mir-5736 microRNA precursor family: an 80-nucleotide RNA from Tetranychus urticae. The source organism's lineage runs through Eukaryota, Opisthokonta, Protostomia, Tetranychidae and Tetranychus.

RNA sequence: AAAUACCUUUGCGGAGUUGAUUGGGCGAAUGGGUCUUAAACAAUCAACCAUCUGCCCAAUCGACUCCAAAAAAAGUAUUA
Numbered sequence: 001a002a003a004u005a006c007c008u009u010u011g012c013g014g015a016g017u018u019g020a021u022u023g024g025g026c027g028a029a030u031g032g033g034u035c036u037u038a039a040a041c042a043a044u045c046a047a048c049c050a051u052c053u054g055c056c057c058a059a060u061c062g063a064c065u066c067c068a069a070a071a072a073a074a075g076u077a078u079u080a
Stems, first nucleotide, its partner, number of pairs: 002079005008072003013067015029051004

Background
Rfam's curators put it in the seed alignment.